[Rfam]
RNA: Plant signal recognition particle RNA
Organism: Tetracentron sinense
RNA sequence: GCCGAGCUAAGUAGUGGUGGCUUGUAACCCAAGCGGGGGCAUUAAGUUGGUUGAACGCUGGCUCGACCCUGACCGGUGGAGCCUGAUUCGGUGCGAUUUACUUCGACUUGCCCAUUCCAAGUCGAGAGUUGGGCCAUGUGGGUCUGGCGAAGGCUCGAACCUCAUGGUCCCUAGAGCGGAGGGCACUGCGCUAGGCUGGCUUCACAGAGCAGCGAAUACCUCCCGCUCUUGACAGUGGAAGGAUUACAAGUUGGUGCACCUCAGACCCCAAAAUACCUGAAGAGCCGAACCCAGUUGAACAACCAUCUUU
Numbered sequence: 001g002c003c004g005a006g007c008u009a010a011g012u013a014g015u016g017g018u019g020g021c022u023u024g025u026a027a028c029c030c031a032a033g034c035g036g037g038g039g040c041a042u043u044a045a046g047u048u049g050g051u052u053g054a055a056c057g058c059u060g061g062c063u064c065g066a067c068c069c070u071g072a073c074c075g076g077u078g079g080a081g082c083c084u085g086a087u088u089c090g091g092u093g094c095g096a097u098u099u100a101c102u103u104c105g106a107c108u109u110g111c112c113c114a115u116u117c118c119a120a121g122u123c124g125a126g127a128g129u130u131g132g133g134c135c136a137u138g139u140g141g142g143u144c145u146g147g148c149g150a151a152g153g154c155u156c157g158a159a160c161c162u163c164a165u166g167g168u169c170c171c172u173a174g175a176g177c178g179g180a181g182g183g184c185a186c187u188g189c190g191c192u193a194g195g196c197u198g199g200c201u202u203c204a205c206a207g208a209g210c211a212g213c214g215a216a217u218a219c220c221u222c223c224c225g226c227u228c229u230u231g232a233c234a235g236u237g238g239a240a241g242g243a244u245u246a247c248a249a250g251u252u253g254g255u256g257c258a259c260c261u262c263a264g265a266c267c268c269c270a271a272a273a274u275a276c277c278u279g280a281a282g283a284g285c286c287g288a289a290c291c292c293a294g295u296u297g298a299a300c301a302a303c304c305a306u307c308u309u310u
Stems, first nucleotide, its partner, number of pairs: 001040003004023006028037003044309003048305006056297002058294003061290001063288003068284001070282001073279001075277003078269002081266001083264003091260001093259001095257001097256001103254008112242002115240005121233009131170008140161002143158002146155003171176001178223005187216001189214003196207003